[Rfam]
RNA sequence: AGAUGGGCCACCCCCUCCCACCAGGGGGCGAAUAUCUGGAAGGAUACCAUGG
Numbered sequence: 001a002g003a004u005g006g007g008c009c010a011c012c013c014c015c016u017c018c019c020a021c022c023a024g025g026g027g028g029c030g031a032a033u034a035u036c037u038g039g040a041a042g043g044a045u046a047c048c049a050u051g052g
Base pairs, nucleotide, nucleotide: 011028012027013026014025015024016023033046034045035044036043037042